[Rfam]
About this RNA:
A member of the RNA family "Small nucleolar RNA SNORD123" from Scyliorhinus torazame, 69 nucleotides long. On this family, see Yang et al., Nucleic Acids Res 2006: "snoSeeker: an advanced computational package for screening of guide and orphan snoRNA genes in the human genome". A search with the family's covariance model found it, with a score of 66 bits. Rfam links the family to the GO terms nucleolus and RNA processing.
RNA sequence: UGUGAAAAUGAUGAUUUAGGGGAUCUGAUUACAUCUGAAGUUAAGAUGCCAUCCAUUUCCUGAUUCACA
Numbered sequence: 001u002g003u004g005a006a007a008a009u010g011a012u013g014a015u016u017u018a019g020g021g022g023a024u025c026u027g028a029u030u031a032c033a034u035c036u037g038a039a040g041u042u043a044a045g046a047u048g049c050c051a052u053c054c055a056u057u058u059c060c061u062g063a064u065u066c067a068c069a
Stems, first nucleotide, its partner, number of pairs: 001069006
Dot-bracket structure: ((((((.........................................................))))))